[Rfam]
Rfam assigns this 165-nucleotide sequence from Platysternon megacephalum to the family "Small Cajal body specific RNA 1".
The match comes from Rfam's covariance-model search (133 bits).
From the family's description: scaRNAs are a specific class of small nuclear RNAs which localise to the Cajal bodies and guide the modification of RNA polymerase II transcribed spliceosomal RNAs U1, U2, U4, U5 and U12. ACA35 belong to the H/ACA box class of guide RNAs as it has the predicted hairpin-hinge-hairpin-tail structure, conserved H/ACA-box motifs and is found associated with GAR1. It is predicted to guide pseudouridylation of the U2 spliceosomal snRNA at residue U89.
The organism belongs to Platysternon, within Eukaryota.
The family has 29 seed sequences and 715 matches in Rfam 15.1.
Rfam links the family to the GO terms RNA processing, nucleolus and Cajal body.

RNA sequence: AAGCACUUGAUACUAACCGAGCUAUCUGUAUCCCAGCUCUCAUGUAGAGAUCUGAGAUAUAACUUGUGAUUGCUGGGUCUGAGAAGUGCAAUAUUAAAACAAGCCAUGAAGUAUUAAGCUCAGGGUGUAGAGGAUCACACUGGGUUAUAACUCAGAGGCACAGAG
Numbered sequence: 001a002a003g004c005a006c007u008u009g010a011u012a013c014u015a016a017c018c019g020a021g022c023u024a025u026c027u028g029u030a031u032c033c034c035a036g037c038u039c040u041c042a043u044g045u046a047g048a049g050a051u052c053u054g055a056g057a058u059a060u061a062a063c064u065u066g067u068g069a070u071u072g073c074u075g076g077g078u079c080u081g082a083g084a085a086g087u088g089c090a091a092u093a094u095u096a097a098a099a100c101a102a103g104c105c106a107u108g109a110a111g112u113a114u115u116a117a118g119c120u121c122a123g124g125g126u127g128u129a130g131a132g133g134a135u136c137a138c139a140c141u142g143g144g145u146u147a148u149a150a151c152u153c154a155g156a157g158g159c160a161c162a163g164a165g
Stems, first nucleotide, its partner, number of pairs: 003089006016078003020074003024070003027061006033054001036052001038050004103159003123138001125136001128133001140155006